RNA sequence: CUGGCUCCGGUUCACGUCUGCACCAGCCGACGACCCGGCGGCC
Numbered sequence: 001c002u003g004g005c006u007c008c009g010g011u012u013c014a015c016g017u018c019u020g021c022a023c024c025a026g027c028c029g030a031c032g033a034c035c036c037g038g039c040g041g042c043c
Base pairs, nucleotide, nucleotide: 003043004042005041007038008037009036010035015032016031017030018029020027021026
A member of the RNA family "L31-Actinobacteria ribosomal protein leader" from Nocardioides marmoriginsengisoli, 43 nucleotides long. The organism belongs to Nocardioides, within Bacteria. A reference for the family is Eckert and Weinberg (2020), "Discovery of 20 novel ribosomal leader candidates in bacteria and archaea", BMC Microbiol. Rfam classes the family as a cis-regulatory leader.